Rfam assigns this 114-nucleotide sequence from Drosophila melanogaster to the family "Potassium channel RNA editing signal". Pairs were carried over by alignment from the consensus structure, which is taken from published work.
[Rfam]
RNA sequence: GUUGGAUAUGGUGACAUGACACCCGUCGGCGUUUGGGGCAAGAUUGUGGGAUCACUUUGUGCCAUUGCUGGCGUGCUGACCAUCGCACUGCCGGUGCCGGUCAUCGUCAGCAAU
Numbered sequence: 001g002u003u004g005g006a007u008a009u010g011g012u013g014a015c016a017u018g019a020c021a022c023c024c025g026u027c028g029g030c031g032u033u034u035g036g037g038g039c040a041a042g043a044u045u046g047u048g049g050g051a052u053c054a055c056u057u058u059g060u061g062c063c064a065u066u067g068c069u070g071g072c073g074u075g076c077u078g079a080c081c082a083u084c085g086c087a088c089u090g091c092c093g094g095u096g097c098c099g100g101u102c103a104u105c106g107u108c109a110g111c112a113a114u
Stems, first nucleotide, its partner, number of pairs: 001114002004111001008107004013102003018097001021095002037077004049063002
Annotation
The source organism's lineage runs through Eukaryota, Ecdysozoa, Hexapoda, Aparaglossata and Sophophora. Rfam's curators put it in the seed alignment.